[Rfam]
RNA sequence: UUUCGUGUGAGGAGUGAGGAACUCCAUCCGGAGUCGAAACGAGGACAGACGCCCGGAUCGUUCCUGAC
Number, nucleotide and partner (000 for none) at each position: 001u000002u000003u000004c000005g000006u000007g000008u000009g000010a000011g000012g000013a000014g000015u000016g000017a000018g000019g063020a062021a061022c060023u000024c000025c000026a000027u000028c056029c055030g054031g053032a000033g050034u049035c048036g000037a000038a000039a000040c000041g000042a000043g000044g000045a000046c000047a000048g035049a034050c033051g000052c000053c031054c030055g029056g028057a000058u000059c000060g022061u021062u020063c019064c000065u000066g000067a000068c000

Cyano-1 RNA: a 68-nucleotide RNA sequence from Synechococcus sp. LTW-R. The base pairs follow the family's consensus structure, which is taken from published work. The source organism's lineage runs through Bacteria, Cyanobacteriota, Cyanophyceae, Synechococcales and Synechococcus. The family's RNA type in Rfam is small RNA. The family has 265 seed sequences and 283 matches in Rfam 15.1.